Source information: A member of the RNA family "Small nucleolar RNA SNORA27", 133 nucleotides long. Rfam's curators write: ACA27 is a member of the H/ACA class of snoRNA that guide the sites of modification of uridines to pseudouridines. Pairs were carried over by alignment from the consensus structure.
RNA sequence: CACCCUCCUUUCACUUUGCCAGUUAGACACUUUUUUGUCUUGAUUGGUCAUUCAAGGUGGGUAAAGUAUACAUCCUUUUAAAACCCAAGCAAAUGGUGGUCAUUUGUCUUGGAUCCUGUCAGAGGAAACAGGU
Numbered sequence: 001c002a003c004c005c006u007c008c009u010u011u012c013a014c015u016u017u018g019c020c021a022g023u024u025a026g027a028c029a030c031u032u033u034u035u036u037g038u039c040u041u042g043a044u045u046g047g048u049c050a051u052u053c054a055a056g057g058u059g060g061g062u063a064a065a066g067u068a069u070a071c072a073u074c075c076u077u078u079u080a081a082a083a084c085c086c087a088a089g090c091a092a093a094u095g096g097u098g099g100u101c102a103u104u105u106g107u108c109u110u111g112g113a114u115c116c117u118g119u120c121a122g123a124g125g126a127a128a129c130a131g132g133u
Stems, first nucleotide, its partner, number of pairs: 036063005044055004073126006086111001087109001089107006
Rfam classes the family as an H/ACA-box small nucleolar RNA.